[Rfam]
RNA sequence: GGCAGAUAUGGAGAUAUGGUGCCCAACACCAUCGCCGGAAAGAUCUUCGGCUCAAUCUGCUCCCUCAGUGGGGUGCUGGUGAUCGCCCUCCCUGUGCCCGUCAUCGUCUCCAAC
Numbered sequence: 001g002g003c004a005g006a007u008a009u010g011g012a013g014a015u016a017u018g019g020u021g022c023c024c025a026a027c028a029c030c031a032u033c034g035c036c037g038g039a040a041a042g043a044u045c046u047u048c049g050g051c052u053c054a055a056u057c058u059g060c061u062c063c064c065u066c067a068g069u070g071g072g073g074u075g076c077u078g079g080u081g082a083u084c085g086c087c088c089u090c091c092c093u094g095u096g097c098c099c100g101u102c103a104u105c106g107u108c109u110c111c112a113a114c
Base pairs, nucleotide, nucleotide: 001114005110008107009106010105011104013102014101015100018097021095022094037077038076040074049063050062

A member of the RNA family "Potassium channel RNA editing signal" from Conger conger, 114 nucleotides long. The family's consensus secondary structure is taken from published work. It scores 78 bits against the family's covariance model. This family represents a group of sequences related to the human potassium channel Kv1.1 hairpin element which directs the efficient modification of an adenosine to inosine by an adenosine deaminase acting on RNA (ADAR). The ADAR modification causes an isoleucine/valine recoding event which lies in the ion-conducting pore of the potassium channel. It is thought that this editing event targets the process of fast inactivation and allows a more rapid recovery from inactivation at negative potentials. It is annotated as a cis-regulatory element. The family has 85 seed sequences and 14,095 matches in Rfam 15.1. NCBI's taxonomy places the organism under Eukaryota, Eumetazoa, Vertebrata, Actinopteri, Conger.